Source information:
Shown here is a 263-nucleotide RNA sequence from Rattus norvegicus, a member of the family "Small Cajal body specific RNA 6". Its family is annotated with nucleolus and RNA processing in the Gene Ontology. The base pairs follow the family's consensus structure, which is taken from published work. For this family Rfam cites "Cajal body-specific small nuclear RNAs: a novel class of 2'-O-methylation and pseudouridylation guide RNAs" (Darzacq et al., EMBO J, 2002). About the family: U88 is small Cajal body specific RNA (scaRNA). scaRNAs are a novel class of small nuclear RNAs which localise to the Cajal bodies. U88 is found associated with both fibrillarin and Gar1p and co-localises with coilin in Cajal bodies.
[Rfam]
RNA sequence: GGUCAAUGAUGAAUAGUAAAAGGUCUGACUUCCGAGGUCGCCUCCCAGCAGCCUACAUCCCCAGCUGCUUACCUGUCUCCCAUCAUGCUCUAGUGGUGCUGUCAUGGGCAGAAACAGUAGCUGACAUGCAGUGAUGUCUCCUUUCUGUCUUCCCUAACAGCCCAGAGAGGACACUGGUUGGCAUCCGACAGCUCAGUCACAAGGGAGUAAUUGUUGGGAGCGCUGGCGUCCUCGGAUAUGAUCUGACAUUUUAAGCUGAGACC
Numbered sequence: 001g002g003u004c005a006a007u008g009a010u011g012a013a014u015a016g017u018a019a020a021a022g023g024u025c026u027g028a029c030u031u032c033c034g035a036g037g038u039c040g041c042c043u044c045c046c047a048g049c050a051g052c053c054u055a056c057a058u059c060c061c062c063a064g065c066u067g068c069u070u071a072c073c074u075g076u077c078u079c080c081c082a083u084c085a086u087g088c089u090c091u092a093g094u095g096g097u098g099c100u101g102u103c104a105u106g107g108g109c110a111g112a113a114a115c116a117g118u119a120g121c122u123g124a125c126a127u128g129c130a131g132u133g134a135u136g137u138c139u140c141c142u143u144u145c146u147g148u149c150u151u152c153c154c155u156a157a158c159a160g161c162c163c164a165g166a167g168a169g170g171a172c173a174c175u176g177g178u179u180g181g182c183a184u185c186c187g188a189c190a191g192c193u194c195a196g197u198c199a200c201a202a203g204g205g206a207g208u209a210a211u212u213g214u215u216g217g218g219a220g221c222g223c224u225g226g227c228g229u230c231c232u233c234g235g236a237u238a239u240g241a242u243c244u245g246a247c248a249u250u251u252u253a254a255g256c257u258g259a260g261a262c263c
Stems, first nucleotide, its partner, number of pairs: 001263004035244005042220008058206004062123007079108005085102003088098001131186001133185006146173007154165002